[Rfam]
RNA: MIR2950 microRNA precursor family
Organism: Manihot esculenta
RNA sequence: CAUGGGUUUAUGGUGUAUUCCAUCUCUUGCACACUGGACCAGUAAAUUUCGGCCACUUCAGCACUGGUUGGUGUGCAAGUGAUGGAAUACAUCAUUGAUCUAUG
Numbered sequence: 001c002a003u004g005g006g007u008u009u010a011u012g013g014u015g016u017a018u019u020c021c022a023u024c025u026c027u028u029g030c031a032c033a034c035u036g037g038a039c040c041a042g043u044a045a046a047u048u049u050c051g052g053c054c055a056c057u058u059c060a061g062c063a064c065u066g067g068u069u070g071g072u073g074u075g076c077a078a079g080u081g082a083u084g085g086a087a088u089a090c091a092u093c094a095u096u097g098a099u100c101u102a103u104g
Stems, first nucleotide, its partner, number of pairs: 001104008010095015026079012039066001